This 218-nucleotide RNA sequence from Sporolactobacillus putidus belongs to the Rfam family "T-box leader". Rfam classes the family as a cis-regulatory leader. Pairs were carried over by alignment from the consensus structure, which is taken from published work. Uncharged tRNA acts as the effector for transcription antitermination of genes in the T-box leader family.
[Rfam]
RNA sequence: GAAAAAGCGUUGAAGAGGUUGAGUAAGGAUUUUUCCUUCUUGGACAGAGAGAACGGUCAUCCGGCUGAAAACCGUUCAGACAGGAAAAUCGCUGAAUUGCCCCUCUGAGUUUUCCGCUGAACGGUUCAGUAGGCGGAAACGGCGGCAGCCGUUAUCGGUUUAAGUGGAGAGGACUACUCUCAAACAAAGUGGAACCGCGUCAUUAAGGCGUCUUUGUG
Numbered sequence: 001g002a003a004a005a006a007g008c009g010u011u012g013a014a015g016a017g018g019u020u021g022a023g024u025a026a027g028g029a030u031u032u033u034u035c036c037u038u039c040u041u042g043g044a045c046a047g048a049g050a051g052a053a054c055g056g057u058c059a060u061c062c063g064g065c066u067g068a069a070a071a072c073c074g075u076u077c078a079g080a081c082a083g084g085a086a087a088a089u090c091g092c093u094g095a096a097u098u099g100c101c102c103c104u105c106u107g108a109g110u111u112u113u114c115c116g117c118u119g120a121a122c123g124g125u126u127c128a129g130u131a132g133g134c135g136g137a138a139a140c141g142g143c144g145g146c147a148g149c150c151g152u153u154a155u156c157g158g159u160u161u162a163a164g165u166g167g168a169g170a171g172g173a174c175u176a177c178u179c180u181c182a183a184a185c186a187a188a189g190u191g192g193a194a195c196c197g198c199g200u201c202a203u204u205a206a207g208g209c210g211u212c213u214u215u216g217u218g
Stems, first nucleotide, its partner, number of pairs: 007110002015105004026093002028090004040079003052076006112138007140151003167181005186215004197211005